RNA sequence: UACAUUCUUCGGGGCAGGGUGAAAAUCCCUACCGGCGGUGAUGAAGCAUUUAUUUUGUUUCUUAGUCCGUGACCCGUUAACAAUGUUAACGGUGGAUCUAGUGAAAAUCUAGAACCGACAGUUAUAGUCUGGAUGGGAGAAGAAUUGC
Numbered sequence: 001u002a003c004a005u006u007c008u009u010c011g012g013g014g015c016a017g018g019g020u021g022a023a024a025a026u027c028c029c030u031a032c033c034g035g036c037g038g039u040g041a042u043g044a045a046g047c048a049u050u051u052a053u054u055u056u057g058u059u060u061c062u063u064a065g066u067c068c069g070u071g072a073c074c075c076g077u078u079a080a081c082a083a084u085g086u087u088a089a090c091g092g093u094g095g096a097u098c099u100a101g102u103g104a105a106a107a108u109c110u111a112g113a114a115c116c117g118a119c120a121g122u123u124a125u126a127g128u129c130u131g132g133a134u135g136g137g138a139g140a141a142g143a144a145u146u147g148c
Stems, first nucleotide, its partner, number of pairs: 004145007017029003031128002033117002035070004065115002074092002097113005119131003
The family of this 148-nucleotide sequence from Metabacillus sediminilitoris is "FMN riboswitch aptamer (RFN element)". Taxonomically the source falls in Metabacillus (Bacteria, Bacillota, Bacilli, Bacillaceae). It scores 115 bits against the family's covariance model.